[Rfam]
RNA sequence: UAAUAAGUUUGCCUCCGAGCCAGAAGGAUCUAAAGAGUACAUUUCACAACUGAAUGCAUCUAUGGUCGCUGGACAGGAUUUUUUAUCCUCAGGGUGUUCCUGGAAACGGGUAUGCCUUCACGUUUUUGAAAAGGAGCAGCAUGGAAUACCGG
Numbered sequence: 001u002a003a004u005a006a007g008u009u010u011g012c013c014u015c016c017g018a019g020c021c022a023g024a025a026g027g028a029u030c031u032a033a034a035g036a037g038u039a040c041a042u043u044u045c046a047c048a049a050c051u052g053a054a055u056g057c058a059u060c061u062a063u064g065g066u067c068g069c070u071g072g073a074c075a076g077g078a079u080u081u082u083u084u085a086u087c088c089u090c091a092g093g094g095u096g097u098u099c100c101u102g103g104a105a106a107c108g109g110g111u112a113u114g115c116c117u118u119c120a121c122g123u124u125u126u127u128g129a130a131a132a133g134g135a136g137c138a139g140c141a142u143g144g145a146a147u148a149c150c151g152g
Base pairs, nucleotide, nucleotide: 004145013136014135015134016133020072021071022070023069028066029065030064034061035060036059075089076088077087078086079085092117093116094115095114096113097112099110100109101108102107118129119128
Source information
The record is a 152-nucleotide sequence from Desulfosporosinus acididurans, which matches "Molybdenum/Tungsten riboswitch aptamer (Moco RNA motif)" in Rfam. Lineage of the source: Bacteria > Bacillati > Bacillota > Eubacteriales > Desulfosporosinus.